[Rfam]
RNA sequence: UAUGGAGUUAUCAAUGAUUAUAAAAUUAAUUCCUCGUUCUGACUUGCUUAAUUUGGACAUGACAAACCUCUUAUUACAACCAUAGAAUUUGAGUUCA
Numbered sequence: 001u002a003u004g005g006a007g008u009u010a011u012c013a014a015u016g017a018u019u020a021u022a023a024a025a026u027u028a029a030u031u032c033c034u035c036g037u038u039c040u041g042a043c044u045u046g047c048u049u050a051a052u053u054u055g056g057a058c059a060u061g062a063c064a065a066a067c068c069u070c071u072u073a074u075u076a077c078a079a080c081c082a083u084a085g086a087a088u089u090u091g092a093g094u095u096c097a
Stems, first nucleotide, its partner, number of pairs: 003097002006095004